Notes
The family of this 171-nucleotide RNA sequence from Virgibacillus oceani is "glmS glucosamine-6-phosphate activated ribozyme aptamer". Gene Ontology terms of the family: regulation of gene expression and catalytic activity. It scores 107 bits against the family's covariance model.
RNA sequence: AAUGAAUGGAAAGCGCCUGAACUAUUUUCUGGACGGUGAGGAAGAUAGUUGACGAGGUGGAGGCUAAUCGAAAUUCUCGGCGGAUUCCUCCCGAUUGCACAUCUCAAUCGAUACGUUUUUCCUUCAAAGCAAUGGGGCAACCUGUUGUACAAAAGGAGAGGCAAGAUGAUA
Numbered sequence: 001a002a003u004g005a006a007u008g009g010a011a012a013g014c015g016c017c018u019g020a021a022c023u024a025u026u027u028u029c030u031g032g033a034c035g036g037u038g039a040g041g042a043a044g045a046u047a048g049u050u051g052a053c054g055a056g057g058u059g060g061a062g063g064c065u066a067a068u069c070g071a072a073a074u075u076c077u078c079g080g081c082g083g084a085u086u087c088c089u090c091c092c093g094a095u096u097g098c099a100c101a102u103c104u105c106a107a108u109c110g111a112u113a114c115g116u117u118u119u120u121c122c123u124u125c126a127a128a129g130c131a132a133u134g135g136g137g138c139a140a141c142c143u144g145u146u147g148u149a150c151a152a153a154a155g156g157a158g159a160g161g162c163a164a165g166a167u168g169a170u171a
Base pairs, nucleotide, nucleotide: 020050021049022048023047024046025045026044027043029041059091060090061089062088063087068080069079070078071077092110093109094108095107096106097105116161117160118159119158120157121156122155130147131146132145133144134143135142136141
By type it is a riboswitch. Taxonomically the source falls in Virgibacillus (Bacteria, Bacillati, Bacilli, Caryophanales).